[Rfam]
Annotation
A member of the RNA family "SR1 sRNA" from Bacillus sp. FJAT-18017, 227 nucleotides long. A search with the family's covariance model found it, with a score of 61 bits. The organism belongs to Bacillus, within Bacteria. The literature on the family includes a 2007 paper in Nucleic Acids Res by Heidrich et al., "In vitro analysis of the interaction between the small RNA SR1 and its primary target ahrC mRNA".

RNA sequence: AAACAAAUACUACUAACUAUUCCGAACUCAAAGAGGAGUUGAUCAAGAUGGGAACAAUUGUAUGCCAAGAUUGCAAUUCAACGAUUGAUCAUUUUGAAGAUGAAAAAGUAACUGUACUUUAUUCAAAGUGCUCCUGCAAUAAAUGCCAUUCUCACGAUGAGGAUCUUUAAAAAUCAACUAUUUUUCAAUAUAAAAACAGGAUUCCAUUUGGAAUCCUGUUUUUAUAU
Dot-bracket structure: ...............(((.((.((...((((((.((............(.(....(....(..............))....).)....)).))))))...)).)).)))................................................................................(((((((((((((..........)))))))))))))..